[Rfam]
RNA sequence: ACACGAGAAGGGAGGUGGUUCCGGAGUGAUGAAGAACCGGACGCGUGAGGUGGCUGCGGCCUAGGGGCCGAAGUCGCGCACAGCGCAGGUCGGAGCCCCUUCCGGCCAAUUCAGAGCAGUCACCCGACCCGCGGUGCCGUCGGCAGGUCCGACCGGCCCCCGCAGCCCGGAUCCGUCCGGAGCGCGGGGAGUGGCCCGCGGGUCGUCUGCU
Numbered sequence: 001a002c003a004c005g006a007g008a009a010g011g012g013a014g015g016u017g018g019u020u021c022c023g024g025a026g027u028g029a030u031g032a033a034g035a036a037c038c039g040g041a042c043g044c045g046u047g048a049g050g051u052g053g054c055u056g057c058g059g060c061c062u063a064g065g066g067g068c069c070g071a072a073g074u075c076g077c078g079c080a081c082a083g084c085g086c087a088g089g090u091c092g093g094a095g096c097c098c099c100u101u102c103c104g105g106c107c108a109a110u111u112c113a114g115a116g117c118a119g120u121c122a123c124c125c126g127a128c129c130c131g132c133g134g135u136g137c138c139g140u141c142g143g144c145a146g147g148u149c150c151g152a153c154c155g156g157c158c159c160c161c162g163c164a165g166c167c168c169g170g171a172u173c174c175g176u177c178c179g180g181a182g183c184g185c186g187g188g189g190a191g192u193g194g195c196c197c198g199c200g201g202g203u204c205g206u207c208u209g210c211u
Base pairs, nucleotide, nucleotide: 015057016056017055018054019053059107061105062104064102065101067098069092070091071090125205126204127203128202129201130200131199132198133197134196136195137194138193139157140156141155142154143153
RNA: Actinobacteria sRNA Ms_IGR-5